[Rfam]
RNA sequence: GUCCCUCGGGUCGAGUGGUUCUUAACAGUUCAACAGUUCUUUACCAAAAUUGUGAAAUGUUUAGGACCACUUGAUUGGGG
Numbered sequence: 001g002u003c004c005c006u007c008g009g010g011u012c013g014a015g016u017g018g019u020u021c022u023u024a025a026c027a028g029u030u031c032a033a034c035a036g037u038u039c040u041u042u043a044c045c046a047a048a049a050u051u052g053u054g055a056a057a058u059g060u061u062u063a064g065g066a067c068c069a070c071u072u073g074a075u076u077g078g079g080g
Stems, first nucleotide, its partner, number of pairs: 014071006021064002024061004029056004

Background: This 80-nucleotide sequence from Megalops atlanticus belongs to the Rfam family "mir-203 microRNA precursor family". Rfam links the family to the GO terms miRNA-mediated post-transcriptional gene silencing and RISC complex. It scores 95 bits against the family's covariance model. The family's consensus secondary structure was predicted with RNAalifold. Taxonomically the source falls in Megalops (Eukaryota, Craniata, Actinopteri, Megalopidae). On this family, see Lim et al., Science 2003: "Vertebrate microRNA genes".